[Rfam]
RNA sequence: CGGGUUUUACUCCUGGAUUUACCAUUGACCGCCCUUGCGAGCGGCAUGUUUUGGUGUCUGAUCCAGCCUGUACUGAAUCGGGAGCACCAUCUGCGUAGGCCUGGGGGAUCACUCCCGGGGUUUAAGGCUUGCGCCGCCUACGGUCUUGGAUAGCCCCCACAGUGCAGGGACCCCAAUAAGAAAGGCGCAUCGCGCGAGCGAUGCG
Numbered sequence: 001c002g003g004g005u006u007u008u009a010c011u012c013c014u015g016g017a018u019u020u021a022c023c024a025u026u027g028a029c030c031g032c033c034c035u036u037g038c039g040a041g042c043g044g045c046a047u048g049u050u051u052u053g054g055u056g057u058c059u060g061a062u063c064c065a066g067c068c069u070g071u072a073c074u075g076a077a078u079c080g081g082g083a084g085c086a087c088c089a090u091c092u093g094c095g096u097a098g099g100c101c102u103g104g105g106g107g108a109u110c111a112c113u114c115c116c117g118g119g120g121u122u123u124a125a126g127g128c129u130u131g132c133g134c135c136g137c138c139u140a141c142g143g144u145c146u147u148g149g150a151u152a153g154c155c156c157c158c159a160c161a162g163u164g165c166a167g168g169g170a171c172c173c174c175a176a177u178a179a180g181a182a183a184g185g186c187g188c189a190u191c192g193c194g195c196g197a198g199c200g201a202u203g204c205g
Stems, first nucleotide, its partner, number of pairs: 002173006011164001013162002023048002029044004034039001052089006058081005064075003093160001095158001098155003120151010187204006
A member of the RNA family "Pseudomonas sRNA P27" from Halopseudomonas pachastrellae, 205 nucleotides long. A search with the family's covariance model found it, with a score of 90 bits. A reference for the family is Livny et al. (2006), "Identification of 17 Pseudomonas aeruginosa sRNAs and prediction of sRNA-encoding genes in 10 diverse pathogens using the bioinformatic tool sRNAPredict2", Nucleic Acids Res.